[Rfam]
RNA sequence: GAAAGCAUUCGUCUUAUCGCCUUUGUGAAAGCAGGGGAGGAAAGUCUGGACAACACAGAGCAUCAUGCUUCCUAACGGGAAGGUACGGUUUUGGAGACGAAACCGUAACAGCAAGUGCCACAGAAAAUUACCGCCCGCAAGGGUAAGGGUGAAAAGGUAGCGUAAGAGACUACCGCUCGGUUGGUGACAAACGAGGCAUCGGUAAACCUCAUGAGUUGAAAGACCAAAUAGGCUGGCAAGCGGCGUUGGCAACAACAAAGUAAAGGACGGCUCGUUCGUGUCAGUGGGUAGGUUGAUAGAGGUAGUAGGUGACUACUAUUCGAGAUAAAUGAUAAGACUUUUGGAAAUUUCUGCAAAGAAAAAUUCAAUCGACAGAAUCCGGCUUAUAGAAUGUUUUUUAAA
Number, nucleotide and partner (000 for none) at each position: 001g398002a397003a396004a395005g394006c393007a392008u391009u390010c389011g387012u337013c336014u335015u334016a333017u332018c331019g000020c037021c036022u035023u034024u033025g032026u031027g000028a000029a000030a000031g026032c025033a024034g023035g022036g021037g020038a000039g000040g000041a000042a385043a384044g383045u000046c382047u381048g380049g379050a378051c218052a217053a216054c215055a000056c000057a000058g273059a272060g271061c270062a000063u214064c213065a212066u211067g210068c082069u081070u080071c079072c078073u000074a000075a000076c000077g000078g072079g071080a070081a069082g068083g109084u107085a106086c105087g104088g103089u102090u101091u100092u099093g098094g000095a000096g000097a000098c093099g092100a091101a090102a089103c088104c087105g086106u085107a084108a000109c083110a209111g208112c000113a000114a000115g207116u206117g203118c202119c201120a000121c000122a000123g000124a000125a000126a000127a000128u000129u000130a000131c148132c147133g144134c143135c142136c141137g000138c000139a000140a000141g136142g135143g134144u133145a000146a000147g132148g131149g000150u000151g000152a000153a000154a000155a000156g174157g173158u172159a171160g170161c000162g000163u000164a000165a000166g000167a000168g000169a000170c160171u159172a158173c157174c156175g197176c195177u194178c193179g192180g000181u190182u189183g188184g000185u000186g000187a000188c183189a182190a181191a000192c179193g178194a177195g176196g000197c175198a000199u000200c000201g119202g118203u117204a000205a000206a116207c115208c111209u110210c067211a066212u065213g064214a063215g054216u053217u052218g051219a000220a000221a000222g294223a293224c292225c291226a000227a000228a000229u000230a000231g000232g285233c284234u283235g282236g281237c280238a000239a000240g000241c000242g000243g000244c000245g000246u000247u000248g000249g000250c000251a000252a000253c000254a000255a000256c000257a000258a000259a000260g000261u000262a000263a000264a000265g277266g276267a275268c274269g000270g061271c060272u059273c058274g268275u267276u266277c265278g000279u000280g237281u236282c235283a234284g233285u232286g000287g000288g000289u000290a000291g225292g224293u223294u222295g000296a000297u000298a000299g000300a000301g320302g319303u318304a317305g316306u315307a314308g313309g000310u000311g000312a000313c308314u307315a306316c305317u304318a303319u302320u301321c000322g000323a000324g000325a000326u000327a000328a000329a000330u000331g018332a017333u016334a015335a014336g013337a012338c000339u000340u000341u000342u000343g000344g000345a000346a000347a000348u000349u000350u000351c000352u000353g000354c000355a000356a000357a000358g000359a000360a000361a000362a000363a000364u000365u000366c000367a000368a000369u000370c000371g000372a000373c000374a000375g000376a000377a000378u050379c049380c048381g047382g046383c044384u043385u042386a000387u011388a000389g010390a009391a008392u007393g006394u005395u004396u003397u002398u001399u000400a000401a000402a000

The family of this 402-nucleotide RNA sequence from Arcicella rosea is "Bacterial RNase P class A".
A search with the family's covariance model found it, with a score of 251 bits.